[Rfam]
RNA sequence: UUUUAUAAAAACGAAAGGACUGAUGGGUGGACAAUGUUUAACUAAUCUUUUUUUCCAAUAUUUGAAAUAAAAUAUUUCAAAUUGUUAGAAAAACAGGAUUAGUCUGCCCAUUUUUAUAUUCGUAGUAGCUAGAGAAGUUCGGAUAAAAAUGUGUAUGUGUAUGGCUAAUCCUUCCAAUUUAGAAUUGGGAGGAUUUUUUA
Numbered sequence: 001u002u003u004u005a006u007a008a009a010a011a012c013g014a015a016a017g018g019a020c021u022g023a024u025g026g027g028u029g030g031a032c033a034a035u036g037u038u039u040a041a042c043u044a045a046u047c048u049u050u051u052u053u054u055c056c057a058a059u060a061u062u063u064g065a066a067a068u069a070a071a072a073u074a075u076u077u078c079a080a081a082u083u084g085u086u087a088g089a090a091a092a093a094c095a096g097g098a099u100u101a102g103u104c105u106g107c108c109c110a111u112u113u114u115u116a117u118a119u120u121c122g123u124a125g126u127a128g129c130u131a132g133a134g135a136a137g138u139u140c141g142g143a144u145a146a147a148a149a150u151g152u153g154u155a156u157g158u159g160u161a162u163g164g165c166u167a168a169u170c171c172u173u174c175c176a177a178u179u180u181a182g183a184a185u186u187g188g189g190a191g192g193a194u195u196u197u198u199u200a
Stems, first nucleotide, its partner, number of pairs: 016115003024110004030104003043101007051093004060082009123145001167195011
This 200-nucleotide RNA sequence from Aquibacillus koreensis belongs to the Rfam family "Bacillus sRNA ncr1575". It scores 132 bits against the family's covariance model. The family's RNA type in Rfam is small RNA. On this family, see Irnov et al., Nucleic Acids Res 2010: "Identification of regulatory RNAs in Bacillus subtilis". Pairs were carried over by alignment from the consensus structure, which is taken from published work.